Rfam assigns this 107-nucleotide sequence from Setaria italica to the family "MIR827 microRNA precursor family". The source organism's lineage runs through Eukaryota, Viridiplantae, Streptophyta, Petrosaviidae and Setaria. The family's consensus secondary structure was predicted with RNAalifold.
[Rfam]
RNA sequence: ACUUGUUUUGUUGGUGGUCACCUAACCAUGCUCCGGUUAGUGCACGGAUCAUGUCCAUGACCUCAUCUCGAUCGUGCAAAGGUUAGAUGACCAUCAGCAAACAUGUU
Numbered sequence: 001a002c003u004u005g006u007u008u009u010g011u012u013g014g015u016g017g018u019c020a021c022c023u024a025a026c027c028a029u030g031c032u033c034c035g036g037u038u039a040g041u042g043c044a045c046g047g048a049u050c051a052u053g054u055c056c057a058u059g060a061c062c063u064c065a066u067c068u069c070g071a072u073c074g075u076g077c078a079a080a081g082g083u084u085a086g087a088u089g090a091c092c093a094u095c096a097g098c099a100a101a102c103a104u105g106u107u
Stems, first nucleotide, its partner, number of pairs: 005102004010098011022086006029078003

The family has 5 seed sequences and 57 matches in Rfam 15.1.